[Rfam]
RNA sequence: GCAAGAGGCAUGCUUACAUGUAGCACUGGCUGACAUGAAAAAUUUCGGCCAGUGCUCGUGUAGCAAUCGCUCCUGCU
Numbered sequence: 001g002c003a004a005g006a007g008g009c010a011u012g013c014u015u016a017c018a019u020g021u022a023g024c025a026c027u028g029g030c031u032g033a034c035a036u037g038a039a040a041a042a043u044u045u046c047g048g049c050c051a052g053u054g055c056u057c058g059u060g061u062a063g064c065a066a067u068c069g070c071u072c073c074u075g076c077u
Base pairs, nucleotide, nucleotide: 001076002075003074005072006071007070010067011066014063015062016061017060018059019058022056023055024054025053026052027051028050029049030048031047
MIR6145 microRNA precursor family: a 77-nucleotide RNA from Nicotiana tabacum.
Rfam links the family to the GO terms RISC complex and miRNA-mediated post-transcriptional gene silencing.
The family's consensus secondary structure was predicted with RNAalifold.